[Rfam]
RNA sequence: UGCGCAGCGCGUGUUUCACCACGAUGUUGCGAAAGCUGACGCCCUUGAGCCGCGCGGUGCGGAUGUAUUGCGCGGUCAUGACCUCGGCCAUGGAGGCCCGCGUCAUCCGCGCGAUGUAGCCCAUCCCGUAGAGCGAGAUGGUCAGCACCGGCAGAAAGAAGUUCUCGAAGUUGGCGC
Dot-bracket structure: ....((.(.(((.(((....(......((.(........(((...(((..((.((.((((((.....)))))).)......((((.......))))).))..)))...)))........).)))...).)).))).).))....((.(((((.(.((....)).)....))))).))
Numbered sequence: 001u002g003c004g005c006a007g008c009g010c011g012u013g014u015u016u017c018a019c020c021a022c023g024a025u026g027u028u029g030c031g032a033a034a035g036c037u038g039a040c041g042c043c044c045u046u047g048a049g050c051c052g053c054g055c056g057g058u059g060c061g062g063a064u065g066u067a068u069u070g071c072g073c074g075g076u077c078a079u080g081a082c083c084u085c086g087g088c089c090a091u092g093g094a095g096g097c098c099c100g101c102g103u104c105a106u107c108c109g110c111g112c113g114a115u116g117u118a119g120c121c122c123a124u125c126c127c128g129u130a131g132a133g134c135g136a137g138a139u140g141g142u143c144a145g146c147a148c149c150g151g152c153a154g155a156a157a158g159a160a161g162u163u164c165u166c167g168a169a170g171u172u173g174g175c176g177c
Stems, first nucleotide, its partner, number of pairs: 005140002008137001010135003014131002016128001021124001028123002031120001040111003046105003051100002054097001055075001057073006082096004145177002148174005154165001156163002
The record is a 177-nucleotide RNA from Antarctobacter aquimaris, which matches "Ruegeria cis52 sRNA" in Rfam. Gene Ontology term of the family: regulation of gene expression. A search with the family's covariance model found it, with a score of 117 bits. Rfam 15.1 lists 277 matches to the family in 275 species.